Shown here is a 115-nucleotide sequence from Peribacillus muralis, a member of the family "RNA Staph. aureus E (RoxS)". The base pairs follow the family's consensus structure, which is taken from published work. From the family's description: It was shown to be regulated by the presence of nitric oxide (NO). In Bacillus subtilis it controls expression of genes with functions related to oxidative stress and oxidation-reduction reactions and it was renamed RoxS (for related to oxidative stress). Rfam links the family to the GO term regulation of translational initiation. The organism belongs to Peribacillus, within Bacteria.
RNA sequence: GUGAAGUGAAUCACAUACAAACUUAUACCCCUUUGUUUGAUCGUGAAAAAUUUCUCCCAUCCCCUUAUUUCUUAUAUGAAACAAAAAAGCAGUCAUUUUCAUGACUGCUUUUUUG
Numbered sequence: 001g002u003g004a005a006g007u008g009a010a011u012c013a014c015a016u017a018c019a020a021a022c023u024u025a026u027a028c029c030c031c032u033u034u035g036u037u038u039g040a041u042c043g044u045g046a047a048a049a050a051u052u053u054c055u056c057c058c059a060u061c062c063c064c065u066u067a068u069u070u071c072u073u074a075u076a077u078g079a080a081a082c083a084a085a086a087a088a089g090c091a092g093u094c095a096u097u098u099u100c101a102u103g104a105c106u107g108c109u110u111u112u113u114u115g
Base pairs, nucleotide, nucleotide: 003054004053005052006051007050011046012045013044014043018039019038020037021036022035025034070081073079085112086111087110088109089108090107091106092105093104094103095102